A member of the RNA family "mir-2060 microRNA precursor family" from Branchiostoma floridae, 86 nucleotides long. Lineage of the source: Eukaryota > Eumetazoa > Deuterostomia > Chordata > Branchiostoma. Pairs were carried over by alignment from the consensus structure, which was predicted with RNAalifold.
RNA sequence: AUGUGUGGAUGGUGUUCAACACCAGAGACAGGUGUGUUUACCUGUGUGUGGAUGAUGUUCAGCACCAGGGACAGAUGUGUAAACCU
Numbered sequence: 001a002u003g004u005g006u007g008g009a010u011g012g013u014g015u016u017c018a019a020c021a022c023c024a025g026a027g028a029c030a031g032g033u034g035u036g037u038u039u040a041c042c043u044g045u046g047u048g049u050g051g052a053u054g055a056u057g058u059u060c061a062g063c064a065c066c067a068g069g070g071a072c073a074g075a076u077g078u079g080u081a082a083a084c085c086u
Base pairs, nucleotide, nucleotide: 002071010067011066012065013064014063015062016061018059019058020057021056023054024053026047028045029044030043031042032041033040034039